[Rfam]
RNA sequence: UUUGCAAGUGAAGAUUAAACAGACAGGGACAUCAGAAAUAUUCUGUGUUGACUAUAUAGUCUUUAAUGGGAAUCUCUCUGAUGCAAU
Numbered sequence: 001u002u003u004g005c006a007a008g009u010g011a012a013g014a015u016u017a018a019a020c021a022g023a024c025a026g027g028g029a030c031a032u033c034a035g036a037a038a039u040a041u042u043c044u045g046u047g048u049u050g051a052c053u054a055u056a057u058a059g060u061c062u063u064u065a066a067u068g069g070g071a072a073u074c075u076c077u078c079u080g081a082u083g084c085a086a087u
Stems, first nucleotide, its partner, number of pairs: 002086005
RNA: Small nucleolar RNA R44/J54/Z268 family
Organism: Brassica carinata